[Rfam]
RNA sequence: GUGGAGGGCCGGGCGGCCGCUGCGGUGGGCAACCGCCGGAGAGGAAAGUCCGGACUCGCUGAAGCAUCGGUGCCGGGUAAUGCCCGGGCAGGGCAACCUGACGGAAAGCGCCACAGAGAACAGACCGCCGCCUUUCGGGGCGGUAAGGGUGAAACGGUGGAGUAAGAGACCACCGGGGGGCUGGCAACAGUCCCCGCAUGGCAAGCCCCACCGGGAGCAAUGCCAAAUAGGGACCCCGCGCGGGGCAUGAUCCCUUCGGGGAUAUCGCCGCAGGGCCGCUUCAGCCCGAGGGGUCCGGGUUGGCAGCUUGAGCCGCGUGGCAACGCGCGGCCUAGAGGAAUGGUCGCACAGGGGCGGGGCAACCCGCUCUGGACAAAAUCCGGCUUAUAGGCCCUCCACGCAA
Numbered sequence: 001g002u003g004g005a006g007g008g009c010c011g012g013g014c015g016g017c018c019g020c021u022g023c024g025g026u027g028g029g030c031a032a033c034c035g036c037c038g039g040a041g042a043g044g045a046a047a048g049u050c051c052g053g054a055c056u057c058g059c060u061g062a063a064g065c066a067u068c069g070g071u072g073c074c075g076g077g078u079a080a081u082g083c084c085c086g087g088g089c090a091g092g093g094c095a096a097c098c099u100g101a102c103g104g105a106a107a108g109c110g111c112c113a114c115a116g117a118g119a120a121c122a123g124a125c126c127g128c129c130g131c132c133u134u135u136c137g138g139g140g141c142g143g144u145a146a147g148g149g150u151g152a153a154a155c156g157g158u159g160g161a162g163u164a165a166g167a168g169a170c171c172a173c174c175g176g177g178g179g180g181c182u183g184g185c186a187a188c189a190g191u192c193c194c195c196g197c198a199u200g201g202c203a204a205g206c207c208c209c210a211c212c213g214g215g216a217g218c219a220a221u222g223c224c225a226a227a228u229a230g231g232g233a234c235c236c237c238g239c240g241c242g243g244g245g246c247a248u249g250a251u252c253c254c255u256u257c258g259g260g261g262a263u264a265u266c267g268c269c270g271c272a273g274g275g276c277c278g279c280u281u282c283a284g285c286c287c288g289a290g291g292g293g294u295c296c297g298g299g300u301u302g303g304c305a306g307c308u309u310g311a312g313c314c315g316c317g318u319g320g321c322a323a324c325g326c327g328c329g330g331c332c333u334a335g336a337g338g339a340a341u342g343g344u345c346g347c348a349c350a351g352g353g354g355c356g357g358g359g360c361a362a363c364c365c366g367c368u369c370u371g372g373a374c375a376a377a378a379u380c381c382g383g384c385u386u387a388u389a390g391g392c393c394c395u396c397c398a399c400g401c402a403a
Stems, first nucleotide, its partner, number of pairs: 001399010011388001013347006020041002023038006046386003050383005055217003059214001064281001068213005073087005088102001089100004103208002108206002110202003125148002127144007156174005175197001176195008221305004231296006273287004312331008